[Rfam]
RNA sequence: ACAUCGGUAACUGGUGGUGGGGCAGCUAACGCGGCCUUGACCAGUCAUGUCUUCAGACGACGACCAAGCCGCCCGAAUUCUCAGGCGGCUUUUUU
Number, nucleotide and partner (000 for none) at each position: 001a000002c000003a000004u000005c000006g000007g000008u000009a000010a000011c044012u043013g042014g041015u040016g000017g038018u000019g037020g036021g035022g000023c000024a000025g032026c031027u000028a000029a000030c000031g026032c025033g000034g000035c021036c020037u019038u017039g000040a015041c014042c013043a012044g011045u000046c000047a000048u059049g058050u057051c056052u000053u000054c000055a000056g051057a050058c049059g048060a000061c000062g000063a000064c000065c000066a091067a090068g089069c088070c087071g086072c085073c084074c000075g082076a081077a000078u000079u000080c000081u076082c075083a000084g073085g072086c071087g070088g069089c068090u067091u066092u000093u000094u000095u000

This 95-nucleotide sequence from Agrobacterium sp. AGB01 belongs to the Rfam family "RcsR1 sRNA". By type it is a small RNA. RcsR1 (rhizobial cold and salinity stress riboregulator 1) trans-acting sRNA, formerly known as SmelC587, is a stress-related riboregulator, conserved in Sinorhizobium, Rhizobium and Agrobacterium. The base pairs follow the family's consensus structure, which is taken from published work. The literature on the family includes a 2015 paper in RNA Biol by Baumgardt et al., "The stress-related, rhizobial small RNA RcsR1 destabilizes the autoinducer synthase encoding mRNA sinI in Sinorhizobium meliloti".